A member of the RNA family "MIR7486 microRNA precursor family" from Gossypium mustelinum, 87 nucleotides long.
RNA sequence: CACAUUAGCGCGCUUUGCUUACGUGAGCACAAAUCGCUCCUACGAGGACGCGAUUUGCUGACACAUCAGCAAAGCGCGCUGACGUGG
Numbered sequence: 001c002a003c004a005u006u007a008g009c010g011c012g013c014u015u016u017g018c019u020u021a022c023g024u025g026a027g028c029a030c031a032a033a034u035c036g037c038u039c040c041u042a043c044g045a046g047g048a049c050g051c052g053a054u055u056u057g058c059u060g061a062c063a064c065a066u067c068a069g070c071a072a073a074g075c076g077c078g079c080u081g082a083c084g085u086g087g
Base pairs, nucleotide, nucleotide: 001086002085003084005082006081007080008079009078010077011076012075013074014073015072016071017070018069019068021066023064024063025062030057031056032055033054034053035052036051037050040047041046